A member of the RNA family "EcpR1" from Mesorhizobium sp. Root554, 113 nucleotides long.
Perviously named SmelC291, SmrC10, or Sra33. According to its overproduction phenotype it was renamed Elongated Cell Phenotype RNA1. Induced by stress,EcpR1 negatively regulates cell cycle master regulatory genes dnaA and gcrA at post-transcriptional level by base pairing between its strongly conserved GC-rich loop and the target mRNAs. It's regulation is hfq-independent but requires RNase E to regulate dnaA.
The family's consensus secondary structure was predicted with WAR.
It is annotated as a small RNA.

[Rfam]
RNA sequence: AUACCCCAUGAUGCUCAGGUCCGCCGCAUCUCCUGGGUCCGUGGGGUCGGCCGGCCGGCGCUGGCGUAUAGUGGCCUCCUCGUACCGCUGCCAGAUUGCCGACCGGCCCCCUU
Numbered sequence: 001a002u003a004c005c006c007c008a009u010g011a012u013g014c015u016c017a018g019g020u021c022c023g024c025c026g027c028a029u030c031u032c033c034u035g036g037g038u039c040c041g042u043g044g045g046g047u048c049g050g051c052c053g054g055c056c057g058g059c060g061c062u063g064g065c066g067u068a069u070a071g072u073g074g075c076c077u078c079c080u081c082g083u084a085c086c087g088c089u090g091c092c093a094g095a096u097u098g099c100c101g102a103c104c105g106g107c108c109c110c111c112u113u
Base pairs, nucleotide, nucleotide: 003047004046005045006044007043008042009041010040014037015036016035017034018033019032049108050107051106052105053104054103056101057100058099059098
Dot-bracket structure: ..((((((((...((((((............))))))..)))))))).((((((.((((......................................)))).)))))).....